[Rfam]
RNA sequence: GGCUGGCCCAAGUGUGGUGGUGUCUAUAACUAACUGAUCACAACUAGUUACAAAUGUCUUUGUUGUUUCUCCACUGUCACUGUUUCAAUUAACUAGCUUUAA
Numbered sequence: 001g002g003c004u005g006g007c008c009c010a011a012g013u014g015u016g017g018u019g020g021u022g023u024c025u026a027u028a029a030c031u032a033a034c035u036g037a038u039c040a041c042a043a044c045u046a047g048u049u050a051c052a053a054a055u056g057u058c059u060u061u062g063u064u065g066u067u068u069c070u071c072c073a074c075u076g077u078c079a080c081u082g083u084u085u086c087a088a089u090u091a092a093c094u095a096g097c098u099u100u101a102a
Stems, first nucleotide, its partner, number of pairs: 001098006010090002014086001016081006028064003032060002
Background:
Y RNA: a 102-nucleotide RNA sequence from Cercocebus atys. It scores 48 bits against the family's covariance model. The family has 104 seed sequences and 26,986 matches in Rfam 15.1. Pairs were carried over by alignment from the consensus structure, which is taken from published work.